Description:
Shown here is an 86-nucleotide sequence from Diabrotica balteata, a member of the family "mir-276 microRNA precursor family". The match comes from Rfam's covariance-model search (83 bits). On this family, see Skalsky et al., BMC Genomics 2010: "Identification of microRNAs expressed in two mosquito vectors, Aedes albopictus and Culex quinquefasciatus". The family's consensus secondary structure was predicted with RNAalifold.
RNA sequence: UUCUCGGUGUACCACUAGCGAGGUAUAGAGUUCCUACGUGAUAUUCUAUUGUAGGAACUUCAUACCGUGCUCUUGGAUAUACCGUU
Numbered sequence: 001u002u003c004u005c006g007g008u009g010u011a012c013c014a015c016u017a018g019c020g021a022g023g024u025a026u027a028g029a030g031u032u033c034c035u036a037c038g039u040g041a042u043a044u045u046c047u048a049u050u051g052u053a054g055g056a057a058c059u060u061c062a063u064a065c066c067g068u069g070c071u072c073u074u075g076g077a078u079a080u081a082c083c084g085u086u
Stems, first nucleotide, its partner, number of pairs: 012076003017071004022066005028060010

Its family is annotated with RISC complex and miRNA-mediated post-transcriptional gene silencing in the Gene Ontology. Lineage of the source: Eukaryota > Panarthropoda > Pancrustacea > Coleoptera > Diabrotica.